skipping-rope RNA: a 70-nucleotide sequence.
The family's consensus secondary structure is taken from published work.
By type it is a small RNA.

RNA sequence: GAAAUCUGAGGACGGAACGGGCAGCCGUCACCCUAGUUGGAGAUGUGGGAAUGUCACCCCCACCUAUUUC
Numbered sequence: 001g002a003a004a005u006c007u008g009a010g011g012a013c014g015g016a017a018c019g020g021g022c023a024g025c026c027g028u029c030a031c032c033c034u035a036g037u038u039g040g041a042g043a044u045g046u047g048g049g050a051a052u053g054u055c056a057c058c059c060c061c062a063c064c065u066a067u068u069u070c
Stems, first nucleotide, its partner, number of pairs: 001070005008064001011029005019058002023054001031040001045063005